[Rfam]
Nucleotides: 083
Stems, first nucleotide, its partner, number of pairs: 001083009010073003013069009023059002
Number, partner (000 for none) and nucleotide at each position: 001083u002082u003081g004080a005079c006078a007077g008076a009075a010073g011072a012071g013069a014068g015067u016066g017065a018064g019063c020062a021061c022000a023059c024058a025000c026000a027000a028000g029000g030000u031000a032000u033000c034000u035000g036000u037000a038000u039000a040000a041000a042000u043000g044000c045000a046000u047000a048000c049000a050000u051000u052000u053000g054000c055000u056000u057000u058024u059023g060000c061021g062020u063019g064018c065017u066016u067015a068014c069013u070000u071012c072011u073010c074000u075009u076008u077007c078006u079005g080004u081003c082002a083001g
Rfam assigns this 83-nucleotide RNA from Tripterygium wilfordii to the family "mir-156 microRNA precursor family". It scores 70 bits against the family's covariance model. The family's consensus secondary structure was predicted with PFOLD. This family represents the plant microRNA (miRNA) precursor mir-156.